[Rfam]
The record is a 79-nucleotide RNA from Ixodes scapularis, which matches "mir-278 microRNA precursor family" in Rfam.
It is one of the family's seed sequences.
RNA sequence: GAUGUGUCCGGAUGAAUUUCUCGCCUGGCCGUUUCCGGUCCCCCGGAACAGGUCGGUGGGAUUUUCGUCCGUUUACGUC
Numbered sequence: 001g002a003u004g005u006g007u008c009c010g011g012a013u014g015a016a017u018u019u020c021u022c023g024c025c026u027g028g029c030c031g032u033u034u035c036c037g038g039u040c041c042c043c044c045g046g047a048a049c050a051g052g053u054c055g056g057u058g059g060g061a062u063u064u065u066c067g068u069c070c071g072u073u074u075a076c077g078u079c
Stems, first nucleotide, its partner, number of pairs: 003077004009071007019061003026055005